[Rfam]
RNA sequence: GGGUAGAAUCUGUAAAGCUCAGGAGGGAUAGCGCCAUGAAGAACAAAGGGUCUUAAUUGUAAUUUGUUAUUCAUUGGCGCUAUCCAUCCUGGGUUUCAUCGCUUCUUCUU
Numbered sequence: 001g002g003g004u005a006g007a008a009u010c011u012g013u014a015a016a017g018c019u020c021a022g023g024a025g026g027g028a029u030a031g032c033g034c035c036a037u038g039a040a041g042a043a044c045a046a047a048g049g050g051u052c053u054u055a056a057u058u059g060u061a062a063u064u065u066g067u068u069a070u071u072c073a074u075u076g077g078c079g080c081u082a083u084c085c086a087u088c089c090u091g092g093g094u095u096u097c098a099u100c101g102c103u104u105c106u107u108c109u110u
Base pairs, nucleotide, nucleotide: 010101016095017094018093019092020091021090022089023088024087026085027084028083029082030081031080032079033078034077035076

Shown here is a 110-nucleotide sequence from Rosa chinensis, a member of the family "MIR390 microRNA precursor family". NCBI's taxonomy places the organism under Eukaryota, Euphyllophyta, Pentapetalae, Rosaceae, Rosa. The family has 16 seed sequences and 649 matches in Rfam 15.1. A search with the family's covariance model found it, with a score of 105 bits. Pairs were carried over by alignment from the consensus structure, which was predicted with WAR. Rfam links the family to the GO terms miRNA-mediated post-transcriptional gene silencing and RISC complex. The literature on the family includes a 2005 paper in Nucleic Acids Res by Gustafson et al., "ASRP: the Arabidopsis Small RNA Project Database".